[Rfam]
drz-agam-2-2 ribozyme: a 195-nucleotide sequence from Anopheles stephensi. Rfam 15.1 lists 486 matches to the family in 10 species. Lineage of the source: Eukaryota > Ecdysozoa > Panorpida > Culicidae > Neocellia. The match comes from Rfam's covariance-model search (126 bits). Its family is annotated with catalytic activity in the Gene Ontology.
RNA sequence: AGUACUCGGCGCUCUGUUAAUGGGGUACGAUCCGAGACUCCUUUCGGGGUUACACAGGCUCUCCUACCCAUUUCCUAUUCCGUCACGUCAUCGUCGUACAGAGUGGUAACUUUUCCCACCACAUAUCCAAGCUUGGGUACACGGGCCUGUCCCAACCCCUUAGGCGGAUGGUGGAGUAAGGCUAAACAGGAGGGA
Numbered sequence: 001a002g003u004a005c006u007c008g009g010c011g012c013u014c015u016g017u018u019a020a021u022g023g024g025g026u027a028c029g030a031u032c033c034g035a036g037a038c039u040c041c042u043u044u045c046g047g048g049g050u051u052a053c054a055c056a057g058g059c060u061c062u063c064c065u066a067c068c069c070a071u072u073u074c075c076u077a078u079u080c081c082g083u084c085a086c087g088u089c090a091u092c093g094u095c096g097u098a099c100a101g102a103g104u105g106g107u108a109a110c111u112u113u114u115c116c117c118a119c120c121a122c123a124u125a126u127c128c129a130a131g132c133u134u135g136g137g138u139a140c141a142c143g144g145g146c147c148u149g150u151c152c153c154a155a156c157c158c159c160u161u162a163g164g165c166g167g168a169u170g171g172u173g174g175a176g177u178a179a180g181g182c183u184a185a186a187c188a189g190g191a192g193g194g195a
Stems, first nucleotide, its partner, number of pairs: 011104007023069005029063002032058002073195004078191002081189001085097003089106001110180003114176001117173004125169004133155005157164002